[Rfam]
RNA sequence: ACGGCUGCGGGUGGCGGCGACGCAGGUGCCCGCAGCACCAGACAGAACACCGUGUCUCCGGAACAUCGGGGCACUUCAGGGCGUU
Number, nucleotide and partner (000 for none) at each position: 001a000002c000003g000004g036005c035006u034007g033008c032009g031010g030011g029012u028013g027014g000015c025016g000017g000018c000019g000020a000021c000022g000023c000024a000025g015026g000027u013028g012029c011030c010031c009032g008033c007034a006035g005036c004037a000038c000039c000040a000041g000042a000043c000044a000045g000046a000047a000048c000049a000050c000051c000052g074053u073054g072055u071056c070057u069058c068059c000060g000061g000062a000063a000064c000065a000066u000067c000068g058069g057070g056071g055072c054073a053074c052075u000076u000077c000078a000079g000080g000081g000082c000083g000084u000085u000

This 85-nucleotide sequence from Streptomyces spiralis belongs to the Rfam family "nrdJ RNA".